RNA sequence: AGAGUGUUAUGAUGUUGGAGGCGACUCCGAGUCUAGCUCUGCUUUCCCUGCUAAAGAUGGCUUUAGCAGG
Numbered sequence: 001a002g003a004g005u006g007u008u009a010u011g012a013u014g015u016u017g018g019a020g021g022c023g024a025c026u027c028c029g030a031g032u033c034u035a036g037c038u039c040u041g042c043u044u045u046c047c048c049u050g051c052u053a054a055a056g057a058u059g060g061c062u063u064u065a066g067c068a069g070g
Stems, first nucleotide, its partner, number of pairs: 002039004011033003017028004047070009
The family of this 70-nucleotide sequence from Enterococcus faecalis is "L17 ribosomal protein downstream element". Rfam's curators put it in the seed alignment. The family's consensus secondary structure is taken from published work.